Small nucleolar RNA R16: an 86-nucleotide RNA sequence from Zingiber officinale. Rfam links the family to the GO terms nucleolus and RNA processing. The family's consensus secondary structure was predicted with PFOLD. It is annotated as a C/D-box small nucleolar RNA. A reference for the family is Marker et al. (2002), "Experimental RNomics: identification of 140 candidates for small non-messenger RNAs in the plant Arabidopsis thaliana", Curr Biol.

RNA sequence: UGCGGCAGAUGAUGUUAAUUUGAUUCUUAUCCUACACACUGAACUCUGGUGUAGACCAACAACUCCGCUUAUUAUCUGAUGCCCGC
Numbered sequence: 001u002g003c004g005g006c007a008g009a010u011g012a013u014g015u016u017a018a019u020u021u022g023a024u025u026c027u028u029a030u031c032c033u034a035c036a037c038a039c040u041g042a043a044c045u046c047u048g049g050u051g052u053a054g055a056c057c058a059a060c061a062a063c064u065c066c067g068c069u070u071a072u073u074a075u076c077u078g079a080u081g082c083c084c085g086c
Stems, first nucleotide, its partner, number of pairs: 004083004